A member of the RNA family "sRNA-Xcc1" from Stenotrophomonas sp. BIIR7, 91 nucleotides long.
NCBI's taxonomy places the organism under Bacteria, Pseudomonadati, Gammaproteobacteria, Lysobacteraceae, Stenotrophomonas.
The family's consensus secondary structure was predicted with RNAalifold.
By type it is a small RNA.
A search with the family's covariance model found it, with a score of 59 bits.
For this family Rfam cites "sRNA-Xcc1, an integron-encoded transposon- and plasmid-transferred trans-acting sRNA, is under the positive control of the key virulence regulators HrpG and HrpX of Xanthomonas campestris pathovar campestris" (Chen et al., RNA Biol, 2011).
[Rfam]
RNA sequence: GGUCGGGAGGGUGGCUAAUACAACACCCUCACUGGGGAAAUACGCCCGCCGCAUGCUGCUAGUCGGUUUCCAACCUCCCGACCGCCUCGCC
Numbered sequence: 001g002g003u004c005g006g007g008a009g010g011g012u013g014g015c016u017a018a019u020a021c022a023a024c025a026c027c028c029u030c031a032c033u034g035g036g037g038a039a040a041u042a043c044g045c046c047c048g049c050c051g052c053a054u055g056c057u058g059c060u061a062g063u064c065g066g067u068u069u070c071c072a073a074c075c076u077c078c079c080g081a082c083c084g085c086c087u088c089g090c091c
Stems, first nucleotide, its partner, number of pairs: 001083009013046003016042002026037003048067004